Guanidine-I riboswitch aptamer: a 99-nucleotide RNA from Paenibacillus arenilitoris.
Taxonomically the source falls in Paenibacillus (Bacteria, Bacillota, Bacilli, Paenibacillaceae).
The base pairs follow the family's consensus structure.
This family represents a conserved RNA structure found upstream of the ykkC and yxkD genes in Bacillus subtilis and related genes in other bacteria. The function of this family is unclear although it has been suggested that it may function to switch on efflux pumps and detoxification systems in response to harmful environmental molecules.
Its family is annotated with regulation of gene expression in the Gene Ontology.
It scores 90 bits against the family's covariance model.
[Rfam]
RNA sequence: CACGAUGUCUUCUAGGGUUCCGCGGCGCCUCGCCGGCCUGGUCCGAGAGAAGACGCACGGCGCGCGCCGUGUCCACGGAGGGACAAAAGCCCGGGAGAG
Numbered sequence: 001c002a003c004g005a006u007g008u009c010u011u012c013u014a015g016g017g018u019u020c021c022g023c024g025g026c027g028c029c030u031c032g033c034c035g036g037c038c039u040g041g042u043c044c045g046a047g048a049g050a051a052g053a054c055g056c057a058c059g060g061c062g063c064g065c066g067c068c069g070u071g072u073c074c075a076c077g078g079a080g081g082g083a084c085a086a087a088a089g090c091c092c093g094g095g096a097g098a099g
Base pairs, nucleotide, nucleotide: 007054008053009052010051011050012049015044016043020041021040022038023035024034025033026032027031055072056071057070058069059068060067061066074094076097080092081091082090